SAH (S-adenosyl-L-homocysteine) riboswitch aptamer: a 100-nucleotide RNA from Pollutimonas harenae. The organism belongs to Pollutimonas, within Bacteria. It scores 53 bits against the family's covariance model.

RNA sequence: CUACCUGAGGAGCGCUGCAACGGCGUCGGGGCCGGCAUCAUCGUCGCCUCUACCCGCUAGGCUCAGGUGGCCUUCUUUGUUUCAACUGCGCUCAUCGUUC
Numbered sequence: 001c002u003a004c005c006u007g008a009g010g011a012g013c014g015c016u017g018c019a020a021c022g023g024c025g026u027c028g029g030g031g032c033c034g035g036c037a038u039c040a041u042c043g044u045c046g047c048c049u050c051u052a053c054c055c056g057c058u059a060g061g062c063u064c065a066g067g068u069g070g071c072c073u074u075c076u077u078u079g080u081u082u083c084a085a086c087u088g089c090g091c092u093c094a095u096c097g098u099u100c
Stems, first nucleotide, its partner, number of pairs: 002069007021056003